[Rfam]
mir-1759 microRNA precursor family: a 75-nucleotide sequence from Gallus gallus.
RNA sequence: GCUGCUGUAGGGUAGGAGGAGAGAGGUGUUACCUUAUCAGCUGCCUCCUCUCCCAUCCUCUCCUUCUGCAGCAGC
Numbered sequence: 001g002c003u004g005c006u007g008u009a010g011g012g013u014a015g016g017a018g019g020a021g022a023g024a025g026g027u028g029u030u031a032c033c034u035u036a037u038c039a040g041c042u043g044c045c046u047c048c049u050c051u052c053c054c055a056u057c058c059u060c061u062c063c064u065u066c067u068g069c070a071g072c073a074g075c
Stems, first nucleotide, its partner, number of pairs: 001075010011063002014059004018054002021052006028045001030043002033040002
Notes: The family's consensus secondary structure was predicted with RNAalifold.